[Rfam]
RNA sequence: UGGCGCCCAAUGUGGGGCUGGAUACUGGGGGCACAUCGUGAGGGAGACAAUGGAGAAAAAAGAGUGCACUCGCUAAAUCUCAAGGAAUUCGGAGACGUGACGUGGGAGCCUGCCGUGACCAAACCGAAAGUAAGUCAAUCCGUCCAAUUAUGGGGCAAGAAUUGAGUGAGCAUCAGGUUUAUGUCAAGCAAUUGAGAGAGGCUCUAAAGACACGAGGAGUAAAGGUUAGGACUGUGGAUUUAUUUCAUUUCCUUGAUUUUGUAAAGGACAUUUGUCCUU
Numbered sequence: 001u002g003g004c005g006c007c008c009a010a011u012g013u014g015g016g017g018c019u020g021g022a023u024a025c026u027g028g029g030g031g032c033a034c035a036u037c038g039u040g041a042g043g044g045a046g047a048c049a050a051u052g053g054a055g056a057a058a059a060a061a062g063a064g065u066g067c068a069c070u071c072g073c074u075a076a077a078u079c080u081c082a083a084g085g086a087a088u089u090c091g092g093a094g095a096c097g098u099g100a101c102g103u104g105g106g107a108g109c110c111u112g113c114c115g116u117g118a119c120c121a122a123a124c125c126g127a128a129a130g131u132a133a134g135u136c137a138a139u140c141c142g143u144c145c146a147a148u149u150a151u152g153g154g155g156c157a158a159g160a161a162u163u164g165a166g167u168g169a170g171c172a173u174c175a176g177g178u179u180u181a182u183g184u185c186a187a188g189c190a191a192u193u194g195a196g197a198g199a200g201g202c203u204c205u206a207a208a209g210a211c212a213c214g215a216g217g218a219g220u221a222a223a224g225g226u227u228a229g230g231a232c233u234g235u236g237g238a239u240u241u242a243u244u245u246c247a248u249u250u251c252c253u254u255g256a257u258u259u260u261g262u263a264a265a266g267g268a269c270a271u272u273u274g275u276c277c278u279u
Base pairs, nucleotide, nucleotide: 006030007029008028012025013024014023036050038048039047088132090130098121101117102116103115104114105113139157141155143154144153145152146151163206164205166202167201213255214254215253216252217251218250219249223241224240225239226238227237264279265278266277267276268275269274

Mason-Pfizer monkey virus packaging signal: a 279-nucleotide sequence from Nannospalax galili. By type it is a cis-regulatory element. A reference for the family is Mustafa et al. (2004), "Mutational analysis of the predicted secondary RNA structure of the Mason-Pfizer monkey virus packaging signal", Virus Res.